[Rfam]
RNA sequence: AUAUUCCUGGCAGGUACGUGAUGGAGAUGAGUUAUUUUGAGCCAACAUUAACCUCAAGGGAGCCGCUGCGCAGUUCUGGUGUGCAUGCCCCGCAGAGUCCGGGGAAGCCUGAAGGAGCUGCUUUGGCGCCCACCUGUAAAAACGAGGUUCAAGAUAAUUCUCCACACGGCCUGCCGGGAUAACU
Numbered sequence: 001a002u003a004u005u006c007c008u009g010g011c012a013g014g015u016a017c018g019u020g021a022u023g024g025a026g027a028u029g030a031g032u033u034a035u036u037u038u039g040a041g042c043c044a045a046c047a048u049u050a051a052c053c054u055c056a057a058g059g060g061a062g063c064c065g066c067u068g069c070g071c072a073g074u075u076c077u078g079g080u081g082u083g084c085a086u087g088c089c090c091c092g093c094a095g096a097g098u099c100c101g102g103g104g105a106a107g108c109c110u111g112a113a114g115g116a117g118c119u120g121c122u123u124u125g126g127c128g129c130c131c132a133c134c135u136g137u138a139a140a141a142a143c144g145a146g147g148u149u150c151a152a153g154a155u156a157a158u159u160c161u162c163c164a165c166a167c168g169g170c171c172u173g174c175c176g177g178g179a180u181a182a183c184u
Stems, first nucleotide, its partner, number of pairs: 002182001005179011017168003033156004038151006058131003062127004071120007083108002088104005
6S / SsrS RNA: a 184-nucleotide RNA sequence from Desulfonatronospira thiodismutans. The literature on the family includes a 2000 paper in Cell by Wassarman and Storz, "6S RNA regulates E. coli RNA polymerase activity". The match comes from Rfam's covariance-model search (105 bits). The family's RNA type in Rfam is non-coding RNA gene. The base pairs follow the family's consensus structure, which is taken from published work. About the family: E. coli 6S RNA was the first non coding RNA to be sequenced, but its function was unknown until recently. It consists of 184 nucleotides that fold into an extended hairpin structure with a large single-stranded internal bulge. The 6S RNA specifically associates with RNA polymerase holoenzyme containing the sigma70 specificity factor.